This 114-nucleotide sequence from Leptobrachium leishanense belongs to the Rfam family "Potassium channel RNA editing signal". By type it is a cis-regulatory element.

RNA sequence: GUAGGAUAUGGAGACAUGGUCCCUACAACAAUAGGUGGCAAGAUAGUGGGUUCCCUGUGUGCGAUUGCAGGCGUUUUAACCAUUGCCUUGCCUGUUCCAGUCAUAGUGUCUAAU
Numbered sequence: 001g002u003a004g005g006a007u008a009u010g011g012a013g014a015c016a017u018g019g020u021c022c023c024u025a026c027a028a029c030a031a032u033a034g035g036u037g038g039c040a041a042g043a044u045a046g047u048g049g050g051u052u053c054c055c056u057g058u059g060u061g062c063g064a065u066u067g068c069a070g071g072c073g074u075u076u077u078a079a080c081c082a083u084u085g086c087c088u089u090g091c092c093u094g095u096u097c098c099a100g101u102c103a104u105a106g107u108g109u110c111u112a113a114u
Stems, first nucleotide, its partner, number of pairs: 001114002004111002007108003011104001013102003018097002021094001037077002040074001050062002